[Rfam]
RNA sequence: ACACGAGAAGGGAGGUGGUUCGGCAGAUGACAAAGAACCGGACGCGUGAGGUGACUGCGGGCUAGCGGCCCGCCGCCACACACAAGUGCGGUGCCGGACCAGCGCGGGAGCGAUCCGCGCAGCCGGCCCAAUCCCAGCAGUCACCCGACCCGCGGUCUCGCCGGUACGUCCGGCCGGCUCCCCCAGGGGAUCCCGAGACCGCGGGUCGUCUGCG
Dot-bracket structure: ..............(((((..................................))))).((((.((.((.(.............................................).)).)).)))).................(((((((((((((.((((((.......)))))).................)))))))))))))......
Rfam assigns this 214-nucleotide RNA from Streptomyces indicus to the family "Actinobacteria sRNA Ms_IGR-5".